[Rfam]
Overview: The family of this 70-nucleotide sequence from Dracunculus medinensis is "mir-50 microRNA precursor family". Rfam links the family to the GO terms RISC complex and miRNA-mediated post-transcriptional gene silencing. The organism belongs to Dracunculus, within Eukaryota.
RNA sequence: GCGACGUUGAUAUGUCUGGUAUUCUUGGGUUAGAUUUGGUUAACCAGUAUCUCAGACGUAUCAUCGUUGU
Numbered sequence: 001g002c003g004a005c006g007u008u009g010a011u012a013u014g015u016c017u018g019g020u021a022u023u024c025u026u027g028g029g030u031u032a033g034a035u036u037u038g039g040u041u042a043a044c045c046a047g048u049a050u051c052u053c054a055g056a057c058g059u060a061u062c063a064u065c066g067u068u069g070u
Base pairs, nucleotide, nucleotide: 008063009062010061011060012059013058014057015056016055017054018053019052021050022049028045029044030043031042032041033040